[Rfam]
RNA sequence: GGAGGAUGGCCCUCCGGGAUCGGCUUUCAGGAGCGGGUCUCAAACCAGUCCGAGCUGCUGCGGUAAAGAGCCGUGGUGGUGAGCGCCGGAUGAAAAGUCCGGACGAGAUCCGAGCAGGU
Number, nucleotide and partner (000 for none) at each position: 001g015002g014003a013004g012005g011006a000007u000008g000009g000010c000011c005012c004013u003014c002015c001016g041017g040018g039019a038020u037021c036022g000023g034024c033025u032026u031027u000028c000029a000030g000031g026032a025033g024034c023035g000036g021037g020038u019039c018040u017041c016042a000043a000044a000045c000046c118047a000048g091049u090050c089051c088052g087053a000054g080055c079056u000057g077058c076059u075060g000061c073062g072063g071064u070065a000066a000067a000068g000069a000070g064071c063072c062073g061074u000075g059076g058077u057078g000079g055080u054081g000082a000083g000084c000085g000086c000087c052088g051089g050090a049091u048092g000093a000094a000095a000096a000097g115098u114099c000100c112101g111102g110103a000104c000105g000106a000107g000108a000109u000110c102111c101112g100113a000114g098115c097116a000117g000118g046119u000
RNA: Group II catalytic intron D1-D4-2